[Rfam]
This 73-nucleotide sequence from Homo sapiens belongs to the Rfam family "mir-644 microRNA precursor family". Taxonomically the source falls in Homo (Eukaryota, Tetrapoda, Eutheria, Hominoidea). The sequence is in the family's curated seed alignment.
RNA sequence: UUCCAUCAGUGUUCAUAAGGAAUGUUGCUCUGUAGUUUUCUUAUAGUGUGGCUUUCUUAGAGCAAAGAUGGUU
Numbered sequence: 001u002u003c004c005a006u007c008a009g010u011g012u013u014c015a016u017a018a019g020g021a022a023u024g025u026u027g028c029u030c031u032g033u034a035g036u037u038u039u040c041u042u043a044u045a046g047u048g049u050g051g052c053u054u055u056c057u058u059a060g061a062g063c064a065a066a067g068a069u070g071g072u073u
Stems, first nucleotide, its partner, number of pairs: 003071005010064005016059007024052004030046006